[Rfam]
RNA sequence: UGAUGUCAGGGACAAAAAGUACAGAGCCGUUUGUGCUUGCACAAAAAGGCUUUGUACUUUGGGUCCCGCAAAACACGAGCAAGUAGCGUUGUUACGCGGAUUGCGAGUGUUUUAGAAUUGCGAGAGCCGCCCAGCGGCGAAGCAAUUCGUGACAUCA
Numbered sequence: 001u002g003a004u005g006u007c008a009g010g011g012a013c014a015a016a017a018a019g020u021a022c023a024g025a026g027c028c029g030u031u032u033g034u035g036c037u038u039g040c041a042c043a044a045a046a047a048g049g050c051u052u053u054g055u056a057c058u059u060u061g062g063g064u065c066c067c068g069c070a071a072a073a074c075a076c077g078a079g080c081a082a083g084u085a086g087c088g089u090u091g092u093u094a095c096g097c098g099g100a101u102u103g104c105g106a107g108u109g110u111u112u113u114a115g116a117a118u119u120g121c122g123a124g125a126g127c128c129g130c131c132c133a134g135c136g137g138c139g140a141a142g143c144a145a146u147u148c149g150u151g152a153c154a155u156c157a
Stems, first nucleotide, its partner, number of pairs: 001157007010066004016060013030046001031044005070113001072111005079104004086097004115148007126138004

Record summary: This 157-nucleotide RNA from a Lachnospiraceae bacterium belongs to the Rfam family "Clostridiales-1 RNA". Lineage of the source: Bacteria > Bacillota > Clostridia > Lachnospirales > Lachnospiraceae.